[Rfam]
The record is a 48-nucleotide RNA sequence from Syntrophotalea acetylenica, which matches "Moco-II RNA" in Rfam. It scores 48 bits against the family's covariance model.

RNA sequence: UAAGCGCUCAUUUCGACCUCUGCCUCUGGCGGACUCAACGAAACCCGC
Numbered sequence: 001u002a003a004g005c006g007c008u009c010a011u012u013u014c015g016a017c018c019u020c021u022g023c024c025u026c027u028g029g030c031g032g033a034c035u036c037a038a039c040g041a042a043a044c045c046c047g048c
Stems, first nucleotide, its partner, number of pairs: 013041003019033005
By type it is a cis-regulatory element.
Taxonomically the source falls in Syntrophotalea (Bacteria, Pseudomonadati, Thermodesulfobacteriota, Syntrophotaleaceae).